RNA sequence: UUCCGGGUGAUGAAGAAAAUCGUUCGGAUUCUCACUGAUAUUUCAUGAAUAGUGUAACCAGCUACUUCUGAUGGAU
Numbered sequence: 001u002u003c004c005g006g007g008u009g010a011u012g013a014a015g016a017a018a019a020u021c022g023u024u025c026g027g028a029u030u031c032u033c034a035c036u037g038a039u040a041u042u043u044c045a046u047g048a049a050u051a052g053u054g055u056a057a058c059c060a061g062c063u064a065c066u067u068c069u070g071a072u073g074g075a076u
Stems, first nucleotide, its partner, number of pairs: 002075004
Dot-bracket structure: .((((..................................................................)))).
RNA: Small nucleolar RNA R12
Organism: Triticum turgidum